Nucleotides: 085
Base pairs, nucleotide, nucleotide: 001084002083003082004081005080006079007078010025011024012023027055028054029053030052031051061077062076063075064074065073
Number, partner (000 for none) and nucleotide at each position: 001084g002083c003082u004081c005080g006079a007078a008000u009000g010025g011024c012023c013000a014000a015000g016000c017000g018000g019000u020000u021000a022000a023012g024011g025010c026000g027055u028054g029053g030052g031051a032000u033000u034000g035000c036000a037000g038000c039000a040000c041000u042000u043000g044000c045000a046000a047000u048000u049000u050000a051031u052030c053029c054028u055027a056000a057000g058000g059000u060000c061077c062076c063075u064074g065073g066000u067000u068000c069000g070000a071000g072000u073065c074064c075063g076062g077061g078007u079006u080005c081004g082003a083002g084001c085000u

The record is an 85-nucleotide RNA sequence from Clonostachys rosea, which matches "tRNA" in Rfam. The organism belongs to Clonostachys, within Eukaryota. Rfam 15.1 lists 5,335,975 matches to the family in 14,413 species. Rfam classes the family as a transfer RNA.